[Rfam]
RNA sequence: UUCUUAUCGAGAGCGGUCGAGGGAGCCGGCCCAAUGACGCCGCAACAACCACCUGGUUUUUCGGCCAGGCAGGUGCUAAAUCCGGGCAGAGGUGCUUUGGCACCUACUGCGCAGAUAAGAG
Numbered sequence: 001u002u003c004u005u006a007u008c009g010a011g012a013g014c015g016g017u018c019g020a021g022g023g024a025g026c027c028g029g030c031c032c033a034a035u036g037a038c039g040c041c042g043c044a045a046c047a048a049c050c051a052c053c054u055g056g057u058u059u060u061u062c063g064g065c066c067a068g069g070c071a072g073g074u075g076c077u078a079a080a081u082c083c084g085g086g087c088a089g090a091g092g093u094g095c096u097u098u099g100g101c102a103c104c105u106a107c108u109g110c111g112c113a114g115a116u117a118a119g120a121g
Stems, first nucleotide, its partner, number of pairs: 001121008013043005021032003026085004044077001046075002049073002052069004081113001086110004091105001
The family of this 121-nucleotide RNA sequence from Chthonomonas calidirosea is "SAM riboswitch aptamer (S box leader)". The source organism's lineage runs through Bacteria, Bacillati, Chthonomonadaceae, Chthonomonas and Chthonomonas calidirosea. A search with the family's covariance model found it, with a score of 69 bits.